[Rfam]
RNA sequence: AUCGAGACUAGAGUCACAUCUUAACAUGUUGGGUUGUCCUGGUGUGCUACAGUUCUCGAACAUAAUCAUCUGAUCCAUAUUCACUGGCUGCGACGUCUCGUGUCUCAGUCAGCCACCGAAUCAGCAACACUU
Numbered sequence: 001a002u003c004g005a006g007a008c009u010a011g012a013g014u015c016a017c018a019u020c021u022u023a024a025c026a027u028g029u030u031g032g033g034u035u036g037u038c039c040u041g042g043u044g045u046g047c048u049a050c051a052g053u054u055c056u057c058g059a060a061c062a063u064a065a066u067c068a069u070c071u072g073a074u075c076c077a078u079a080u081u082c083a084c085u086g087g088c089u090g091c092g093a094c095g096u097c098u099c100g101u102g103u104c105u106c107a108g109u110c111a112g113c114c115a116c117c118g119a120a121u122c123a124g125c126a127a128c129a130c131u132u
Stems, first nucleotide, its partner, number of pairs: 002059005007053003012048002015046006024037003070124005076118001084112004089107002092104003
This 132-nucleotide sequence from Thinocorus orbignyianus belongs to the Rfam family "Small nucleolar RNA SNORA3/SNORA45 family". The family has 6 seed sequences and 2,080 matches in Rfam 15.1. From the family's description: The members of this family belong to the H/ACA class of snoRNAs which are thought to guide the sites of modification of uridines to pseudouridines. This family includes mouse snoMBI-28 and human homologues ACA3 (SNORA3) and ACA3-2 (SNORA45). Both ACA3 and ACA3-2 share the same host gene. MBI-28, ACA3 and ACA3-2 are all predicted to guide the pseudouridylation of residues in 28S rRNA. It scores 88 bits against the family's covariance model. Lineage of the source: Eukaryota > Bilateria > Dipnotetrapodomorpha > Saurischia > Thinocorus. By type it is an H/ACA-box small nucleolar RNA.